The record is a 75-nucleotide RNA sequence from Cetobacterium ceti, which matches "Fluoride riboswitch aptamer (crcB RNA motif)" in Rfam. NCBI's taxonomy places the organism under Bacteria, Fusobacteriati, Fusobacteriales, Fusobacteriaceae, Cetobacterium. A search with the family's covariance model found it, with a score of 45 bits.
[Rfam]
RNA sequence: AAUAAAAAAGGGAAUGAUGAUCUCCCUUAGUUAUAAACUAAAACUGCUUAUAAAGCUGAUGACGUCUACAUUUUU
Number, nucleotide and partner (000 for none) at each position: 001a000002a000003u000004a000005a000006a000007a000008a000009a000010g026011g025012g024013a023014a000015u000016g066017a065018u064019g063020a000021u061022c000023u013024c012025c011026c010027u000028u000029a000030g000031u000032u000033a000034u000035a000036a000037a000038c000039u000040a000041a000042a000043a000044c000045u000046g056047c055048u054049u000050a000051u000052a000053a000054a048055g047056c046057u000058g000059a000060u000061g021062a000063c019064g018065u017066c016067u000068a000069c000070a000071u000072u000073u000074u000075u000